RNA sequence: CUGCGAAGCCGUCUGGUGGAUGGCUCGGCUCGGGUGCCGACGAAGGCCGUAGCAAGUUGCGAUAAGCUCUGGGGAGGCGCAUGCAGCCUUAGAUCCAGAGAUCGCUGAAUUGGUCCCGGGGCUCUGCCUCAGGGAUCGGGCACGCCGGGAAGUGAAACAUCUUAGUACCGGCAGGAAAAGAAAGCAACUGCGAUGCCGUUAGUAGGGGCGACCGAAAGCGGCACAGGGCAAACCGAAUCUCUGACCGUAAGGUUGGAGAGAUGUGGUGUUUAGCGGGACCCACUGUCUGGCCUUACCUAGCGAAGUUGAAGUGGCCUGGAAUGGCCCGCCAUAGAGGGUGACAGCCCCGUAAACGAGUUGGGUGAGGUCAAUGGGUGGUGUUCCAGAGUACCGUAGGUUGGUUAGUCCUGCGGGAAGGUGGGAGAACCAACUCCCAACUCUAAACAUACACCCGAGACCGAUAGCGCACUAGUACCGUGAGGGAACGCUGAAAAGUACCCCUGGCGGGGGGUGAAAAGUGCCUGAAACCAGACGGUUACAUGA
Numbered sequence: 001c002u003g004c005g006a007a008g009c010c011g012u013c014u015g016g017u018g019g020a021u022g023g024c025u026c027g028g029c030u031c032g033g034g035u036g037c038c039g040a041c042g043a044a045g046g047c048c049g050u051a052g053c054a055a056g057u058u059g060c061g062a063u064a065a066g067c068u069c070u071g072g073g074g075a076g077g078c079g080c081a082u083g084c085a086g087c088c089u090u091a092g093a094u095c096c097a098g099a100g101a102u103c104g105c106u107g108a109a110u111u112g113g114u115c116c117c118g119g120g121g122c123u124c125u126g127c128c129u130c131a132g133g134g135a136u137c138g139g140g141c142a143c144g145c146c147g148g149g150a151a152g153u154g155a156a157a158c159a160u161c162u163u164a165g166u167a168c169c170g171g172c173a174g175g176a177a178a179a180g181a182a183a184g185c186a187a188c189u190g191c192g193a194u195g196c197c198g199u200u201a202g203u204a205g206g207g208g209c210g211a212c213c214g215a216a217a218g219c220g221g222c223a224c225a226g227g228g229c230a231a232a233c234c235g236a237a238u239c240u241c242u243g244a245c246c247g248u249a250a251g252g253u254u255g256g257a258g259a260g261a262u263g264u265g266g267u268g269u270u271u272a273g274c275g276g277g278a279c280c281c282a283c284u285g286u287c288u289g290g291c292c293u294u295a296c297c298u299a300g301c302g303a304a305g306u307u308g309a310a311g312u313g314g315c316c317u318g319g320a321a322u323g324g325c326c327c328g329c330c331a332u333a334g335a336g337g338g339u340g341a342c343a344g345c346c347c348c349g350u351a352a353a354c355g356a357g358u359u360g361g362g363u364g365a366g367g368u369c370a371a372u373g374g375g376u377g378g379u380g381u382u383c384c385a386g387a388g389u390a391c392c393g394u395a396g397g398u399u400g401g402u403u404a405g406u407c408c409u410g411c412g413g414g415a416a417g418g419u420g421g422g423a424g425a426a427c428c429a430a431c432u433c434c435c436a437a438c439u440c441u442a443a444a445c446a447u448a449c450a451c452c453c454g455a456g457a458c459c460g461a462u463a464g465c466g467c468a469c470u471a472g473u474a475c476c477g478u479g480a481g482g483g484a485a486c487g488c489u490g491a492a493a494a495g496u497a498c499c500c501c502u503g504g505c506g507g508g509g510g511g512u513g514a515a516a517a518g519u520g521c522c523u524g525a526a527a528c529c530a531g532a533c534g535g536u537u538a539c540a541u542g543a
Stems, first nucleotide, its partner, number of pairs: 007537010022522001023488002027459002029456006035448002045106003048061003067100006076088003111118002125135001127133002143174001144172005154161002184191002195222005205213002225441004233266003243254004278379003281375001288370004305354003311327001313326004330334001336348003391413007420435005475482002
Dot-bracket structure: ......((((((((((.....(((..((((((((((........((((((........))).....((((((...(((.......)))......))))))...)))....((....))......(.((...)).).......((((((.....((....))......))))).).........((....))...(((((.....((.....))....)))))..((((....(((.......((((....)))).........)))...........((((......((((.............(((...(.((((......)))))..(...).(((.......)))...)))............))))....).)))...........(((((((.........)))))))......(((((......)))))..)))).....))..)))))).))...............((....))....)).................................).....))))))))))......